[Rfam]
RNA sequence: GGGGAUGACAGGUUUCGACGUUGGUCGUCGAGCCAGGGGAAGCGGGUCGAGGAUGCAUGGUCAUCUCGUCAACGAUCCAUGCAAACCAAUAGGUGCCGAUUCCAAGCGCACCGAGUUCGCCCUCGCCGCCUGAGCGAGCGCGACUCUGUCAGCCCGGGUGCGCUCCCGCCCCGGGUCCUGGCAUCGACUAGGGAGCUCACCUCUCACCGAGGUCGCGUAGGUGAGAGGGACACGCAACGCGGCUGGGCCCGGCGAUGACAUGCCUGUGUGAGCAUCGGGGCCGAGCAGACCGUUGAACAGGAUGCACCCGGAGAAGCCCUGGUACCACGCUGACGGACGCGGGUUCGAUUCCCGCCAUCUCCACCU
Numbered sequence: 001g002g003g004g005a006u007g008a009c010a011g012g013u014u015u016c017g018a019c020g021u022u023g024g025u026c027g028u029c030g031a032g033c034c035a036g037g038g039g040a041a042g043c044g045g046g047u048c049g050a051g052g053a054u055g056c057a058u059g060g061u062c063a064u065c066u067c068g069u070c071a072a073c074g075a076u077c078c079a080u081g082c083a084a085a086c087c088a089a090u091a092g093g094u095g096c097c098g099a100u101u102c103c104a105a106g107c108g109c110a111c112c113g114a115g116u117u118c119g120c121c122c123u124c125g126c127c128g129c130c131u132g133a134g135c136g137a138g139c140g141c142g143a144c145u146c147u148g149u150c151a152g153c154c155c156g157g158g159u160g161c162g163c164u165c166c167c168g169c170c171c172c173g174g175g176u177c178c179u180g181g182c183a184u185c186g187a188c189u190a191g192g193g194a195g196c197u198c199a200c201c202u203c204u205c206a207c208c209g210a211g212g213u214c215g216c217g218u219a220g221g222u223g224a225g226a227g228g229g230a231c232a233c234g235c236a237a238c239g240c241g242g243c244u245g246g247g248c249c250c251g252g253c254g255a256u257g258a259c260a261u262g263c264c265u266g267u268g269u270g271a272g273c274a275u276c277g278g279g280g281c282c283g284a285g286c287a288g289a290c291c292g293u294u295g296a297a298c299a300g301g302a303u304g305c306a307c308c309c310g311g312a313g314a315a316g317c318c319c320u321g322g323u324a325c326c327a328c329g330c331u332g333a334c335g336g337a338c339g340c341g342g343g344u345u346c347g348a349u350u351c352c353c354g355c356c357a358u359c360u361c362c363a364c365c366u
Stems, first nucleotide, its partner, number of pairs: 001362007019335007030325001032323007043310005048068005054083007121142001123140001147183006153175004158170001162196006200228009211244006246282005253277003259270002264301002267296001339355005

transfer-messenger RNA: a 366-nucleotide sequence from Kineococcus aurantiacus. The family's RNA type in Rfam is non-coding RNA gene. On this family, see Mao et al., RNA Biol 2010: "Variations on the tmRNA gene". The match comes from Rfam's covariance-model search (156 bits).